[Rfam]
RNA sequence: CCUGUCUACGCAGGUCGGGAUGUGAUUCCCCUCGCGGGUGGCCGCGGCGGGAAUUGAACCACGCA
Numbered sequence: 001c002c003u004g005u006c007u008a009c010g011c012a013g014g015u016c017g018g019g020a021u022g023u024g025a026u027u028c029c030c031c032u033c034g035c036g037g038g039u040g041g042c043c044g045c046g047g048c049g050g051g052a053a054u055u056g057a058a059c060c061a062c063g064c065a
Base pairs, nucleotide, nucleotide: 001014002013003012004011005010017060018059024055025054026053027052028051029050030049
RNA: eL15-Euryarchaeota ribosomal protein leader
Organism: Natronomonas sp. CBA1123